[Rfam]
Shown here is an 87-nucleotide RNA from Salvator merianae, a member of the family "mir-135 microRNA precursor family". On this family, see Lagos-Quintana et al., Curr Biol 2002: "Identification of tissue-specific microRNAs from mouse". The family's consensus secondary structure was predicted with PFOLD. Taxonomically the source falls in Salvator (Eukaryota, Amniota, Laterata, Teiioidea).
RNA sequence: GACCCAUUGUCUUCUAUGGCUUUUUAUUCCUAUGUGAUUAUACCUCUGACUUCAUAUAGGGAUUGAAGCCGUGCAAUACAUUGGGGG
Numbered sequence: 001g002a003c004c005c006a007u008u009g010u011c012u013u014c015u016a017u018g019g020c021u022u023u024u025u026a027u028u029c030c031u032a033u034g035u036g037a038u039u040a041u042a043c044c045u046c047u048g049a050c051u052u053c054a055u056a057u058a059g060g061g062a063u064u065g066a067a068g069c070c071g072u073g074c075a076a077u078a079c080a081u082u083g084g085g086g087g
Stems, first nucleotide, its partner, number of pairs: 003085004008080003012076002015073009026063012